[Rfam]
RNA sequence: GCGGAGGGCCGGAUGGCCGCGUGGGGGGCAACCCCCGCGAGGAAAGUCCGGACUCCAUGAAGCAGCGGUGCCGGGUAACGCCCGGGCGGGGAAACCCGACGGAAAGCGCCACAGAGAACAGUCCGCCGCGCAGGUCGCGGCAAGGGUGAAACGGUGGAGUAAGAGCCCACCGCGCCCCUGGCAACAGGGGCGGCACGGCAAGCCCCACCGGGAGCAAUGCCAAAUAGGACCCCCGCGCGGGACGCGUCGGUUUCGGCCGAUACCUCCGCUAGGCCGCUUCAGCCGAGAGGGGUCGGGUUGGCAGCUAGAGGCGCCUGGCAACAGGCGCACCAGAGGAAUGGUCAUCGAAGGGGGCAACCCUGGAACAGAAUCCGGCUUACAGGCCCUCCGCGCGC
Number, nucleotide and partner (000 for none) at each position: 001g391002c390003g389004g388005a387006g386007g385008g384009c383010c382011g380012g346013a345014u344015g343016g342017c341018c340019g000020c039021g038022u037023g036024g035025g034026g033027g032028g000029c000030a000031a000032c027033c026034c025035c024036c023037g022038c021039g020040a000041g000042g000043a000044a378045a377046g376047u000048c375049c374050g373051g372052a371053c214054u213055c212056c211057a000058u000059g000060a000061a279062g278063c000064a000065g000066c210067g209068g208069u207070g206071c085072c084073g083074g082075g081076u000077a000078a000079c000080g000081c075082c074083c073084g072085g071086g100087c098088g097089g096090g095091g000092a000093a000094a000095c090096c089097c088098g087099a000100c086101g205102g204103a000104a000105a000106g203107c202108g199109c198110c197111a000112c000113a000114g000115a000116g000117a000118a000119c000120a000121g000122u000123c145124c144125g141126c140127c139128g138129c137130g136131c000132a000133g000134g000135u000136c130137g129138c128139g127140g126141c125142a000143a000144g124145g123146g000147u000148g000149a000150a000151a000152c000153g171154g170155u169156g168157g167158a000159g000160u000161a000162a000163g000164a000165g000166c000167c157168c156169a155170c154171c153172g194173c192174g191175c190176c189177c188178c187179u186180g185181g000182c000183a000184a000185c180186a179187g178188g177189g176190g175191c174192g173193g000194c172195a000196c000197g110198g109199c108200a000201a000202g107203c106204c102205c101206c070207a069208c068209c067210g066211g056212g055213a054214g053215c000216a000217a000218u303219g302220c301221c300222a000223a000224a000225u000226a000227g000228g294229a293230c292231c291232c290233c289234c000235g000236c000237g000238c000239g000240g000241g000242a000243c000244g000245c000246g000247u000248c000249g000250g000251u000252u000253u000254c000255g000256g000257c000258c000259g000260a000261u000262a000263c000264c000265u000266c000267c000268g000269c000270u000271a000272g284273g283274c282275c000276g000277c000278u062279u061280c000281a000282g274283c273284c272285g000286a000287g000288a000289g233290g232291g231292g230293u229294c228295g000296g000297g000298u000299u000300g221301g220302c219303a218304g000305c000306u000307a000308g000309a000310g000311g328312c327313g326314c325315c324316u323317g322318g000319c000320a000321a000322c317323a316324g315325g314326c313327g312328c311329a000330c000331c000332a000333g000334a000335g000336g000337a000338a000339u000340g018341g017342u016343c015344a014345u013346c012347g000348a000349a000350g000351g000352g000353g000354g000355c000356a000357a000358c000359c000360c000361u000362g000363g000364a000365a000366c000367a000368g000369a000370a000371u052372c051373c050374g049375g048376c046377u045378u044379a000380c011381a000382g010383g009384c008385c007386c006387u005388c004389c003390g002391c001392g000393c000394g000395c000